The record is a 102-nucleotide RNA from Clostridiales bacterium CHKCI006, which matches "azaaromatic riboswitch aptamer (yjdF RNA)" in Rfam. Pairs were carried over by alignment from the consensus structure, which is taken from published work. The source organism's lineage runs through Bacteria, Bacillati, Bacillota, Clostridia and Eubacteriales.

[Rfam]
Nucleotides: 102
Stems, first nucleotide, its partner, number of pairs: 004094008026043005045057005068078003
Number, partner (000 for none) and nucleotide at each position: 001000a002000a003000c004094u005093g006092c007091a008090a009089a010088g011087a012000u013000a014000a015000a016000a017000a018000c019000a020000c021000c022000a023000u024000g025000a026043g027042c028041c029040g030039g031000u032000u033000g034000g035000u036000a037000g038000u039030c040029c041028g042027g043026c044000c045057g046056c047055a048054c049053g050000u051000c052000a053049c054048g055047u056046g057045u058000c059000a060000g061000u062000a063000a064000c065000c066000c067000u068078c069077c070076c071000u072000c073000c074000u075000u076070g077069g078068g079000u080000c081000g082000u083000c084000c085000c086000u087011u088010c089009u090008u091007u092006g093005u094004a095000u096000g097000a098000a099000u100000c101000a102000a